RNA sequence: UCAAUAAAUUAUAUAAAUACUCGUAUAAUCGCAGGGAUAUGGCCUGCAAGUUUCUACCGAAUUACCGUAAAUGAUUCGACUACGAGUGGAUGAUAACUAUUU
Numbered sequence: 001u002c003a004a005u006a007a008a009u010u011a012u013a014u015a016a017a018u019a020c021u022c023g024u025a026u027a028a029u030c031g032c033a034g035g036g037a038u039a040u041g042g043c044c045u046g047c048a049a050g051u052u053u054c055u056a057c058c059g060a061a062u063u064a065c066c067g068u069a070a071a072u073g074a075u076u077c078g079a080c081u082a083c084g085a086g087u088g089g090a091u092g093a094u095a096a097c098u099a100u101u102u
Base pairs, nucleotide, nucleotide: 018088019087020086021085022084023083024082025081029049031047032046033045034044035043058078059077060076061075062074063073064072
Purine riboswitch aptamer: a 102-nucleotide sequence from Anaerobacillus arseniciselenatis. NCBI's taxonomy places the organism under Bacteria, Bacillati, Bacillota, Caryophanales, Anaerobacillus.